[Rfam]
RNA sequence: UUUAAAUGCAGUUUUGAAUUUCCGUAUCCGACAUUUGAUCAUCUGCCUUAUUCGAAAAAUUUAUGAAAAAAUAAAAAAACAAGUUACGCAUAAAGUAUUAUUCAUGUUUUAUCAUAUAAGAACAAUAAAAAUACUAAUCAUAAAAAAAUAAAUAAGACGACGGUUAAACGUUGGACACGAAAACCCACUAUCGCACUUAAA
Numbered sequence: 001u002u003u004a005a006a007u008g009c010a011g012u013u014u015u016g017a018a019u020u021u022c023c024g025u026a027u028c029c030g031a032c033a034u035u036u037g038a039u040c041a042u043c044u045g046c047c048u049u050a051u052u053c054g055a056a057a058a059a060u061u062u063a064u065g066a067a068a069a070a071a072u073a074a075a076a077a078a079a080c081a082a083g084u085u086a087c088g089c090a091u092a093a094a095g096u097a098u099u100a101u102u103c104a105u106g107u108u109u110u111a112u113c114a115u116a117u118a119a120g121a122a123c124a125a126u127a128a129a130a131a132u133a134c135u136a137a138u139c140a141u142a143a144a145a146a147a148a149u150a151a152a153u154a155a156g157a158c159g160a161c162g163g164u165u166a167a168a169c170g171u172u173g174g175a176c177a178c179g180a181a182a183a184c185c186c187a188c189u190a191u192c193g194c195a196c197u198u199a200a201a
Stems, first nucleotide, its partner, number of pairs: 027175006034168007042160002045158001047156005
MIR812 microRNA precursor family: a 201-nucleotide RNA from Oryza meridionalis. Its family is annotated with miRNA-mediated post-transcriptional gene silencing and RISC complex in the Gene Ontology. It scores 112 bits against the family's covariance model. The base pairs follow the family's consensus structure, which was predicted with RNAalifold.